A member of the RNA family "RAGATH-16 RNA", 71 nucleotides long. The base pairs follow the family's consensus structure, which is taken from published work. The sequence is in the family's curated seed alignment.
RNA sequence: GCGGAUAAAAUCCGCCGUCGCCGGUGCCACGGAGUUAGGCCGUGGGGUCCAGAUUGUGAAAAUGCCCGGAG
Numbered sequence: 001g002c003g004g005a006u007a008a009a010a011u012c013c014g015c016c017g018u019c020g021c022c023g024g025u026g027c028c029a030c031g032g033a034g035u036u037a038g039g040c041c042g043u044g045g046g047g048u049c050c051a052g053a054u055u056g057u058g059a060a061a062a063u064g065c066c067c068g069g070a071g
Stems, first nucleotide, its partner, number of pairs: 001015006021069004027045006